[Rfam]
RNA sequence: GUAGUCAGAUUCGCAUCGAUCCACAUGCGUUGGGGUGGAUUGAAGUGGAACUUGAACUAAAUUACACCCCAAUCCACCCCAACACAUGUGGAUUGAGGUGAAUUCGAUA
Numbered sequence: 001g002u003a004g005u006c007a008g009a010u011u012c013g014c015a016u017c018g019a020u021c022c023a024c025a026u027g028c029g030u031u032g033g034g035g036u037g038g039a040u041u042g043a044a045g046u047g048g049a050a051c052u053u054g055a056a057c058u059a060a061a062u063u064a065c066a067c068c069c070c071a072a073u074c075c076a077c078c079c080c081a082a083c084a085c086a087u088g089u090g091g092a093u094u095g096a097g098g099u100g101a102a103u104u105c106g107a108u109a
Stems, first nucleotide, its partner, number of pairs: 004108003008104007016096012029083004035077008045067003